[Rfam]
RNA sequence: GAAGACUGCCAUGAGCGGGGUGGUUCCCCAACCAGGAGCCACUUUACCGUACUCAGAAUUC
Numbered sequence: 001g002a003a004g005a006c007u008g009c010c011a012u013g014a015g016c017g018g019g020g021u022g023g024u025u026c027c028c029c030a031a032c033c034a035g036g037a038g039c040c041a042c043u044u045u046a047c048c049g050u051a052c053u054c055a056g057a058a059u060u061c
Stems, first nucleotide, its partner, number of pairs: 017045011

Notes: The family of this 61-nucleotide sequence from Synechococcales cyanobacterium T60_A2020_003 is "Plastid-psbN 5UTR RNA". Rfam's curators write: Plastid psbN is a non-coding RNA (ncRNA) recognised in plastids. It was reported as a conserved 11 stem-loop in the prime untranslated region (5UTR) of psbN genes. Rfam 15.1 lists 2,345 matches to the family in 397 species.